Nucleotides: 101
Stems, first nucleotide, its partner, number of pairs: 019086007029049007058077002060074004
Number, partner (000 for none) and nucleotide at each position: 001000a002000u003000u004000u005000u006000a007000a008000a009000a010000u011000a012000a013000u014000a015000g016000c017000a018000a019086c020085c021084u022083u023082g024081u025080a026000u027000a028000a029049g030048u031047u032046c033045a034044a035043g036000a037000a038000u039000a040000u041000g042000g043035c044034u045033u046032g047031a048030a049029c050000g051000u052000u053000u054000c055000u056000a057000c058077c059076a060074g061073c062072u063071a064000c065000c066000u067000u068000a069000a070000a071063u072062g073061g074060c075000u076059u077058g078000u079000c080025u081024a082023c083022a084021a085020g086019g087000a088000u089000u090000a091000g092000a093000g094000a095000u096000c097000a098000u099000u100000u101000u